[Rfam]
Rfam assigns this 102-nucleotide sequence from Anaeromicrobium sediminis to the family "Purine riboswitch aptamer". Rfam links the family to the GO term purine nucleobase biosynthetic process. A reference for the family is Mandal et al. (2003), "Riboswitches Control Fundamental Biochemical Pathways in Bacillus subtilis and Other Bacteria", Cell. Taxonomically the source falls in Anaeromicrobium (Bacteria, Bacillota, Peptostreptococcales, Thermotaleaceae).
RNA sequence: CAACCAAAUAUUUAGUUUGCUCGUAUAUGUUUAGAGAUAAGGUCUAAACGUUUCUACAUGGUCUCCGUAAAUGACCUAACUAUGAGUGAGAUUACUAAUGUA
Numbered sequence: 001c002a003a004c005c006a007a008a009u010a011u012u013u014a015g016u017u018u019g020c021u022c023g024u025a026u027a028u029g030u031u032u033a034g035a036g037a038u039a040a041g042g043u044c045u046a047a048a049c050g051u052u053u054c055u056a057c058a059u060g061g062u063c064u065c066c067g068u069a070a071a072u073g074a075c076c077u078a079a080c081u082a083u084g085a086g087u088g089a090g091a092u093u094a095c096u097a098a099u100g101u102a
Stems, first nucleotide, its partner, number of pairs: 018088008029049007060076004